Rfam assigns this 87-nucleotide sequence from Sulfuricaulis limicola to the family "SAH (S-adenosyl-L-homocysteine) riboswitch aptamer".
RNA sequence: CCCUCCGAGGAGCGUUGCAACCCCCAAGCUCGACGCUGGGGCCAGGCUCGGAGGGAACGUCAGUCAAAAAAACGGCGCUCGCUCAAU
Numbered sequence: 001c002c003c004u005c006c007g008a009g010g011a012g013c014g015u016u017g018c019a020a021c022c023c024c025c026a027a028g029c030u031c032g033a034c035g036c037u038g039g040g041g042c043c044a045g046g047c048u049c050g051g052a053g054g055g056a057a058c059g060u061c062a063g064u065c066a067a068a069a070a071a072a073c074g075g076c077g078c079u080c081g082c083u084c085a086a087u
Stems, first nucleotide, its partner, number of pairs: 002054007021041004
The base pairs follow the family's consensus structure, which is taken from published work. NCBI's taxonomy places the organism under Bacteria, Pseudomonadati, Pseudomonadota, Acidiferrobacteraceae, Sulfuricaulis. For this family Rfam cites "Riboswitches that sense S-adenosylhomocysteine and activate genes involved in coenzyme recycling" (Wang et al., Mol Cell, 2008).